Rfam assigns this 72-nucleotide sequence from Paraburkholderia tagetis to the family "tRNA". Taxonomically the source falls in Paraburkholderia (Bacteria, Pseudomonadati, Betaproteobacteria, Burkholderiaceae). The base pairs follow the family's consensus structure, which is taken from published work.
RNA sequence: GCGGGUGUCGUAUAAUGGUUAUUACCCCAGCUUCCCAAGCUGGAGACGUGGGUUCGAUUCCCAUCGCCCGCU
Number, nucleotide and partner (000 for none) at each position: 001g071002c070003g069004g068005g067006u066007g065008u000009c000010g025011u024012a023013u000014a000015a000016u000017g000018g000019u000020u000021a000022u000023u012024a011025c010026c000027c043028c042029a041030g040031c039032u000033u000034c000035c000036c000037a000038a000039g031040c030041u029042g028043g027044a000045g000046a000047c000048g064049u063050g062051g061052g060053u000054u000055c000056g000057a000058u000059u000060c052061c051062c050063a049064u048065c007066g006067c005068c004069c003070g002071c001072u000